[Rfam]
The record is a 159-nucleotide RNA from Fukomys damarensis, which matches "U4 spliceosomal RNA" in Rfam. Lineage of the source: Eukaryota > Teleostomi > Euarchontoglires > Hystricomorpha > Fukomys. The literature on the family includes a 1997 paper in Nucleic Acids Res by Zwieb, "The uRNA database".

RNA sequence: GGCUUUGCACAGUGGCAGUGUUGUAGCCAAUGAAGUUUAUCCAAGGUGCGAGUAUUGCUAAUUGAAAAGAACAGGUGAGCCAGGUAACGAAUAAGACUCCAGGGUUAGGGGACUAAGGAUAUUUAUGAGUUAGCCAGCCUGUAGUGAAUAUCUUAGUAU
Numbered sequence: 001g002g003c004u005u006u007g008c009a010c011a012g013u014g015g016c017a018g019u020g021u022u023g024u025a026g027c028c029a030a031u032g033a034a035g036u037u038u039a040u041c042c043a044a045g046g047u048g049c050g051a052g053u054a055u056u057g058c059u060a061a062u063u064g065a066a067a068a069g070a071a072c073a074g075g076u077g078a079g080c081c082a083g084g085u086a087a088c089g090a091a092u093a094a095g096a097c098u099c100c101a102g103g104g105u106u107a108g109g110g111g112a113c114u115a116a117g118g119a120u121a122u123u124u125a126u127g128a129g130u131u132a133g134c135c136a137g138c139c140u141g142u143a144g145u146g147a148a149u150a151u152c153u154u155a156g157u158a159u
Base pairs, nucleotide, nucleotide: 021051022050023049024048026047027046028045035041083135084134085133086131087130088129091126092125093124094123095122148159149158150157151156